[Rfam]
RNA sequence: GAGAAAUGAUGAAUACAUUUUGGUCCGUGUUUCUGAAUUUACCGUGACCGACACUAUUUAACCACUUCUGAUCUC
Numbered sequence: 001g002a003g004a005a006a007u008g009a010u011g012a013a014u015a016c017a018u019u020u021u022g023g024u025c026c027g028u029g030u031u032u033c034u035g036a037a038u039u040u041a042c043c044g045u046g047a048c049c050g051a052c053a054c055u056a057u058u059u060a061a062c063c064a065c066u067u068c069u070g071a072u073c074u075c
Stems, first nucleotide, its partner, number of pairs: 001075004

Shown here is a 75-nucleotide sequence from Beta vulgaris, a member of the family "Small nucleolar RNA SNORD18". It scores 42 bits against the family's covariance model. Its family is annotated with RNA processing and nucleolus in the Gene Ontology. Lineage of the source: Eukaryota > Viridiplantae > Gunneridae > Betoideae > Beta vulgaris. By type it is a C/D-box small nucleolar RNA.